Source information:
Rfam assigns this 158-nucleotide RNA sequence from Glycine soja to the family "MIR4371 microRNA precursor family".
[Rfam]
RNA sequence: CCCUUAAGUAAUGACGUAAUAGACAGAAUGUCACGUAAUCACGUUUUGUUAUAGACACCUCAUUGUUAUAUCAUCACUCUCAAUGACGUGGUACUGACAUGUCAAUGAUUGGGUGUGAUGACGUGACACUCCGUCUCUCACACCAUCACUUAAUAGAA
Numbered sequence: 001c002c003c004u005u006a007a008g009u010a011a012u013g014a015c016g017u018a019a020u021a022g023a024c025a026g027a028a029u030g031u032c033a034c035g036u037a038a039u040c041a042c043g044u045u046u047u048g049u050u051a052u053a054g055a056c057a058c059c060u061c062a063u064u065g066u067u068a069u070a071u072c073a074u075c076a077c078u079c080u081c082a083a084u085g086a087c088g089u090g091g092u093a094c095u096g097a098c099a100u101g102u103c104a105a106u107g108a109u110u111g112g113g114u115g116u117g118a119u120g121a122c123g124u125g126a127c128a129c130u131c132c133g134u135c136u137c138u139c140a141c142a143c144c145a146u147c148a149c150u151u152a153a154u155a156g157a158a
Base pairs, nucleotide, nucleotide: 001156004153005152006151007150008149009148011146012145013144016141017140019138021136022135023134024133026131027130029128030127031126032125033124034123035122036121038119039118040117041116042115043114044113045112046111048109049108050107051106052105054103055102056101057100071086072085073084074083
The family has 4 seed sequences and 321 matches in Rfam 15.1. Lineage of the source: Eukaryota > Magnoliopsida > rosids > Papilionoideae > Glycine subgen. Soja.